About this RNA:
This 203-nucleotide sequence from Pseudonocardia bannensis belongs to the Rfam family "Actinobacteria sRNA Ms_IGR-5". The organism belongs to Pseudonocardia, within Bacteria.
[Rfam]
RNA sequence: ACACGUGAGAGGAGGUGGUCCAGCGUUGAUCAGCUACAGGACUCGUGAGGUGGCUGUCCGCUAGCACUACAGGACGUCUCCGACGGCCAGUGGAAGCCGGUGUGGUGCCGGCGAAUUCCAGGCAGUCACCCGUGAUCCCCGGGCCCGAGCCCGUCCAGCUCGGCGUGCGCAUCCCACGAUGCGGCCCGGGGAUCACGCAUGUC
Numbered sequence: 001a002c003a004c005g006u007g008a009g010a011g012g013a014g015g016u017g018g019u020c021c022a023g024c025g026u027u028g029a030u031c032a033g034c035u036a037c038a039g040g041a042c043u044c045g046u047g048a049g050g051u052g053g054c055u056g057u058c059c060g061c062u063a064g065c066a067c068u069a070c071a072g073g074a075c076g077u078c079u080c081c082g083a084c085g086g087c088c089a090g091u092g093g094a095a096g097c098c099g100g101u102g103u104g105g106u107g108c109c110g111g112c113g114a115a116u117u118c119c120a121g122g123c124a125g126u127c128a129c130c131c132g133u134g135a136u137c138c139c140c141g142g143g144c145c146c147g148a149g150c151c152c153g154u155c156c157a158g159c160u161c162g163g164c165g166u167g168c169g170c171a172u173c174c175c176a177c178g179a180u181g182c183g184g185c186c187c188g189g190g191g192a193u194c195a196c197g198c199a200u201g202u203c
Stems, first nucleotide, its partner, number of pairs: 014058006059113004064108002067105004072098002131197013145163006
For this family Rfam cites "Identification of small RNAs in Mycobacterium smegmatis using heterologous Hfq" (Li et al., RNA, 2013). A search with the family's covariance model found it, with a score of 96 bits.